[Rfam]
RNA sequence: CUUUGGGGACGACUCCAAGACGCGAUCACCGUUCGGGGACGACCCUG
Numbered sequence: 001c002u003u004u005g006g007g008g009a010c011g012a013c014u015c016c017a018a019g020a021c022g023c024g025a026u027c028a029c030c031g032u033u034c035g036g037g038g039a040c041g042a043c044c045c046u047g
Stems, first nucleotide, its partner, number of pairs: 002019007034047005
Guanidine-II riboswitch aptamer (mini-ykkC): a 47-nucleotide RNA sequence from Variovorax sp. PDC80. A search with the family's covariance model found it, with a score of 36 bits. From the family's description: Simpler in structure and has fewer highly conserved nucleotide positions than the ykkC-yxkD leader. Taxonomically the source falls in Variovorax (Bacteria, Pseudomonadati, Pseudomonadota, Burkholderiales). The family's consensus secondary structure is taken from published work.